[Rfam]
RNA sequence: AAUAAAUCGAAAACAUCAUUUCGUAUAAUGGCAGGAAUAGGGCCUGCGAGUUUCUACCAAGCUACCGUAAAUAGCUUGACUACGAAAAUAAUGGGUUUUUUA
Numbered sequence: 001a002a003u004a005a006a007u008c009g010a011a012a013a014c015a016u017c018a019u020u021u022c023g024u025a026u027a028a029u030g031g032c033a034g035g036a037a038u039a040g041g042g043c044c045u046g047c048g049a050g051u052u053u054c055u056a057c058c059a060a061g062c063u064a065c066c067g068u069a070a071a072u073a074g075c076u077u078g079a080c081u082a083c084g085a086a087a088a089u090a091a092u093g094g095g096u097u098u099u100u101u102a
Stems, first nucleotide, its partner, number of pairs: 019087007029049001031047005058078007

A member of the RNA family "Purine riboswitch aptamer" from Halalkalibacterium halodurans, 102 nucleotides long. The family's consensus secondary structure is taken from published work.